[Rfam]
RNA sequence: GCUAGAUAUAACUGUAAGUCGCUCUGGAUAAGAGCAUCUGCUAAAUGACUAAAA
Number, nucleotide and partner (000 for none) at each position: 001g000002c000003u000004a000005g000006a000007u000008a000009u000010a000011a000012c000013u043014g041015u040016a039017a000018g000019u000020c000021g035022c034023u033024c032025u031026g000027g000028a000029u000030a000031a025032g024033a023034g022035c021036a000037u000038c000039u016040g015041c014042u000043a013044a000045a000046u000047g000048a000049c000050u000051a000052a000053a000054a000